[Rfam]
The family of this 134-nucleotide RNA is "c-di-AMP riboswitch aptamer (ydaO/yuaA leader)". This family represents a conserved RNA structure found upstream of the ydaO and yuaA genes in Bacillus subtilis and related genes in other bacteria. The ydaO/yuaA element is thought to act as a genetic 'off' switch for the ydaO and yuaA genes in its native state. A search with the family's covariance model found it, with a score of 46 bits. Gene Ontology terms of the family: regulation of gene expression and cyclic-di-AMP binding.

RNA sequence: UAACUAUUUUUGCCGAAUUUCGUAUUGAAAACGGGGGAACCAUUUGUUGGGUGAAUUAUUCUUGCAAGAUAAGAAUAUGAGGGGCCUUUAACCGAAUCCUUAAGCUGGCUCCGUAGAAAUCUAAGGGAGGAACA
Numbered sequence: 001u002a003a004c005u006a007u008u009u010u011u012g013c014c015g016a017a018u019u020u021c022g023u024a025u026u027g028a029a030a031a032c033g034g035g036g037g038a039a040c041c042a043u044u045u046g047u048u049g050g051g052u053g054a055a056u057u058a059u060u061c062u063u064g065c066a067a068g069a070u071a072a073g074a075a076u077a078u079g080a081g082g083g084g085c086c087u088u089u090a091a092c093c094g095a096a097u098c099c100u101u102a103a104g105c106u107g108g109c110u111c112c113g114u115a116g117a118a119a120u121c122u123a124a125g126g127g128a129g130g131a132a133c134a
Stems, first nucleotide, its partner, number of pairs: 011119001014116001018030003031114006042047001049099003057077008081092001